Enteroviral 3' UTR element: a 121-nucleotide RNA sequence from Enterovirus betacoxsackie. For this family Rfam cites "Structural requirements of the higher order RNA kissing element in the enteroviral 3'UTR" (Wang et al., Nucleic Acids Res, 1999). Its family is annotated with RNA replication in the Gene Ontology. It is annotated as a cis-regulatory element.
RNA sequence: AAGUGGUUAGAUUCUUUCUAAAUUAGAGGCAAUUUGAAAUAAUUUAAAUUAGCUCAACCCUACUGCACUUACCGAACUAGAUAAUGGUGUAGUAGGGGUAAAUUCUCCGCGUUCGGUGCGG
Numbered sequence: 001a002a003g004u005g006g007u008u009a010g011a012u013u014c015u016u017u018c019u020a021a022a023u024u025a026g027a028g029g030c031a032a033u034u035u036g037a038a039a040u041a042a043u044u045u046a047a048a049u050u051a052g053c054u055c056a057a058c059c060c061u062a063c064u065g066c067a068c069u070u071a072c073c074g075a076a077c078u079a080g081a082u083a084a085u086g087g088u089g090u091a092g093u094a095g096g097g098g099u100a101a102a103u104u105c106u107c108c109g110c111g112u113u114c115g116g117u118g119c120g121g
Stems, first nucleotide, its partner, number of pairs: 024057001026055003031050008058097012071117006107121004
Overview:
This RNA structure is found in the 3' UTR of various enteroviruses. The overall structure forms the origin of replication (OriR) for the initiation of (-) strand RNA synthesis. Pseudoknots have also been predicted in this structure.